Shown here is a 205-nucleotide sequence from Oryza meridionalis, a member of the family "MIR812 microRNA precursor family". The family has 22 seed sequences and 57,451 matches in Rfam 15.1. The family's consensus secondary structure was predicted with RNAalifold.
RNA sequence: AAUAAGUGUAGCUAUAAGUUUCCGCGUCCAAAUUUGAUCGUCUGUCUUAUUUGAAACUUUUUUAUAAUUAGCAUUUUCAUUGUUAUAAGAUGAUAGAAUAUGAAUAAUAUUUUACUUGUGACUUAUGUUUUAAUUAUUUUUUAAAAUUUUGUUAAAUAAAAUAAAUGGUCAAAGUUAAAUAUGAAAAAUCAUGAUUUCACUUAUU
Numbered sequence: 001a002a003u004a005a006g007u008g009u010a011g012c013u014a015u016a017a018g019u020u021u022c023c024g025c026g027u028c029c030a031a032a033u034u035u036g037a038u039c040g041u042c043u044g045u046c047u048u049a050u051u052u053g054a055a056a057c058u059u060u061u062u063u064a065u066a067a068u069u070a071g072c073a074u075u076u077u078c079a080u081u082g083u084u085a086u087a088a089g090a091u092g093a094u095a096g097a098a099u100a101u102g103a104a105u106a107a108u109a110u111u112u113u114a115c116u117u118g119u120g121a122c123u124u125a126u127g128u129u130u131u132a133a134u135u136a137u138u139u140u141u142u143a144a145a146a147u148u149u150u151g152u153u154a155a156a157u158a159a160a161a162u163a164a165a166u167g168g169u170c171a172a173a174g175u176u177a178a179a180u181a182u183g184a185a186a187a188a189u190c191a192u193g194a195u196u197u198c199a200c201u202u203a204u205u
Base pairs, nucleotide, nucleotide: 027179030176031175033173034172035171036170037169038168039167040166041165043163044162045161047159048158049157050156